[Rfam]
Repression of heat shock gene expression (ROSE) element: a 104-nucleotide RNA sequence from Novosphingobium guangzhouense.
It scores 47 bits against the family's covariance model.
Rfam's curators write: This family represents a 5' UTR cis-regulatory element found in heat shock mRNAs and is known as the ROSE (repression of heat shock gene expression) element. The ROSE element is a negative regulator of heat shock gene expression. The secondary structure is thought to be regulated by temperature. This regulation blocks access to the ribosome binding site under normal conditions. During heat shock however, the structure changes freeing the ribosome binding site and allowing expression to occur.
RNA sequence: CCGGGCGCCGCUGUUCGGGUCCGGUGGACAUCGAGGGCGCCAGCUCUCCUGUACUGGCGCAACUCAUGUCCAGAUCGCUUCUUUGGAGGAUUUGGAAAUGAGAA
Numbered sequence: 001c002c003g004g005g006c007g008c009c010g011c012u013g014u015u016c017g018g019g020u021c022c023g024g025u026g027g028a029c030a031u032c033g034a035g036g037g038c039g040c041c042a043g044c045u046c047u048c049c050u051g052u053a054c055u056g057g058c059g060c061a062a063c064u065c066a067u068g069u070c071c072a073g074a075u076c077g078c079u080u081c082u083u084u085g086g087a088g089g090a091u092u093u094g095g096a097a098a099u100g101a102g103a104a
Stems, first nucleotide, its partner, number of pairs: 001024006008018002037060007063102005070095007078088003
Its family is annotated with regulation of translation and response to temperature stimulus in the Gene Ontology.
The family's RNA type in Rfam is RNA thermoregulator.